[Rfam]
Small nucleolar RNA SNORD45: an 84-nucleotide RNA from Tauraco erythrolophus. Rfam 15.1 lists 1,629 matches to the family in 521 species. It scores 50 bits against the family's covariance model.
RNA sequence: GGUCCGUGGUGAGUCCUGGCAUGUAUUAUCUCGAGUAUAAAUUUGAAGAUUAUCAGUUUAGCUCUAAAAUUACUCAGAGACCUG
Numbered sequence: 001g002g003u004c005c006g007u008g009g010u011g012a013g014u015c016c017u018g019g020c021a022u023g024u025a026u027u028a029u030c031u032c033g034a035g036u037a038u039a040a041a042u043u044u045g046a047a048g049a050u051u052a053u054c055a056g057u058u059u060a061g062c063u064c065u066a067a068a069a070u071u072a073c074u075c076a077g078a079g080a081c082c083u084g
Stems, first nucleotide, its partner, number of pairs: 001082004